[Rfam]
RNA sequence: CUUCACGGAGCCCAGCCACAGCGGCUCGCGCCCGGCCUCCCGCUCCUCGCCGUACGUGGCGAGCAGCGCCUGCGCCUC
Numbered sequence: 001c002u003u004c005a006c007g008g009a010g011c012c013c014a015g016c017c018a019c020a021g022c023g024g025c026u027c028g029c030g031c032c033c034g035g036c037c038u039c040c041c042g043c044u045c046c047u048c049g050c051c052g053u054a055c056g057u058g059g060c061g062a063g064c065a066g067c068g069c070c071u072g073c074g075c076c077u078c
Base pairs, nucleotide, nucleotide: 014026015025016024017023035073036072041068042067046063047062048061050059051058052057
RNA: ASpks TB sRNA